About this RNA
This 81-nucleotide RNA from Dictyobacter kobayashii belongs to the Rfam family "Fluoride riboswitch aptamer (crcB RNA motif)". Lineage of the source: Bacteria > Chloroflexota > Ktedonobacterales > Dictyobacteraceae > Dictyobacter.

RNA sequence: AAUCCAUUUGGUGAUGGAGCUCACCUGGUCAAUACAUUACUUUGACUGAACUGCAGAGAAGCUGAUGGCUCCUGAUGGCGC
Numbered sequence: 001a002a003u004c005c006a007u008u009u010g011g012u013g014a015u016g017g018a019g020c021u022c023a024c025c026u027g028g029u030c031a032a033u034a035c036a037u038u039a040c041u042u043u044g045a046c047u048g049a050a051c052u053g054c055a056g057a058g059a060a061g062c063u064g065a066u067g068g069c070u071c072c073u074g075a076u077g078g079c080g081c
Base pairs, nucleotide, nucleotide: 010025011024012023013022016072017071018070019069020068021067053062054061